[Rfam]
RNA: Small nucleolar SNORD12/SNORD106
RNA sequence: GCUGGUCAUAUGAUGACAGAAUUUUUUCCCCGGCAGAUCGACCAUGUUGAUAAUUGCAUGCUCUAAGCCAGUUUUGUCUGAUACACCAGC
Numbered sequence: 001g002c003u004g005g006u007c008a009u010a011u012g013a014u015g016a017c018a019g020a021a022u023u024u025u026u027u028c029c030c031c032g033g034c035a036g037a038u039c040g041a042c043c044a045u046g047u048u049g050a051u052a053a054u055u056g057c058a059u060g061c062u063c064u065a066a067g068c069c070a071g072u073u074u075u076g077u078c079u080g081a082u083a084c085a086c087c088a089g090c
Stems, first nucleotide, its partner, number of pairs: 001090006008082001